Background
Shown here is a 35-nucleotide RNA sequence from Rousettus aegyptiacus, a member of the family "Iron response element I".
RNA sequence: UUGUCUCUUACUUCAACAGUGUUUGGACAGAGCAG
Numbered sequence: 001u002u003g004u005c006u007c008u009u010a011c012u013u014c015a016a017c018a019g020u021g022u023u024u025g026g027a028c029a030g031a032g033c034a035g
Stems, first nucleotide, its partner, number of pairs: 001035004006031003012027005017021001
It is annotated as a cis-regulatory element. A reference for the family is Nichol and Winzerling (2002), "Structured RNA upstream of insect cap distal iron responsive elements enhances iron regulatory protein-mediated control of translation", Insect Biochem Mol Biol. Pairs were carried over by alignment from the consensus structure, which is taken from published work.